[Rfam]
RNA sequence: CUUUAUUAGUAUAAUUAGUAUAUUUGAUUUCCAAUCAAAAGGGCUUUGUUAAGAAUCAAAGAUGGAGU
Numbered sequence: 001c002u003u004u005a006u007u008a009g010u011a012u013a014a015u016u017a018g019u020a021u022a023u024u025u026g027a028u029u030u031c032c033a034a035u036c037a038a039a040a041g042g043g044c045u046u047u048g049u050u051a052a053g054a055a056u057c058a059a060a061g062a063u064g065g066a067g068u
Base pairs, nucleotide, nucleotide: 001067002066003065004064005063006062010022011021012020013019023039024038025037026036027035044061045060046059047058048057

This 68-nucleotide RNA sequence belongs to the Rfam family "tRNA".
The base pairs follow the family's consensus structure, which is taken from published work.
The family is grouped with related families in Rfam's "tRNA clan".
By type it is a transfer RNA.